[Rfam]
RNA: narK RNA
RNA sequence: GGCACAUAUCCUGCUAAACGUUUAGGAGGUAGCCAAUGGCGGUUACCUACACAGACAACGACGUCAU
Number, nucleotide and partner (000 for none) at each position: 001g000002g000003c000004a000005c000006a000007u000008a000009u000010c000011c000012u000013g000014c000015u000016a000017a000018a000019c000020g000021u000022u000023u000024a000025g000026g000027a000028g047029g046030u045031a044032g043033c042034c041035a000036a000037u000038g000039g000040c000041g034042g033043u032044u031045a030046c029047c028048u000049a000050c000051a000052c000053a000054g000055a000056c000057a000058a000059c000060g000061a000062c000063g000064u000065c000066a000067u000